[Rfam]
RNA sequence: CCCAAGGAUCAAAUGCUAAAAUCGCGACAUCAUUCGCUGCGCAUUUGCGACCUGCGUCCUGCAGG
Numbered sequence: 001c002c003c004a005a006g007g008a009u010c011a012a013a014u015g016c017u018a019a020a021a022u023c024g025c026g027a028c029a030u031c032a033u034u035c036g037c038u039g040c041g042c043a044u045u046u047g048c049g050a051c052c053u054g055c056g057u058c059c060u061g062c063a064g065g
Base pairs, nucleotide, nucleotide: 010047011046012045013044014043015042016041024037025036026035027034051065052064053063054062055061
RNA: Bacillaceae-1 RNA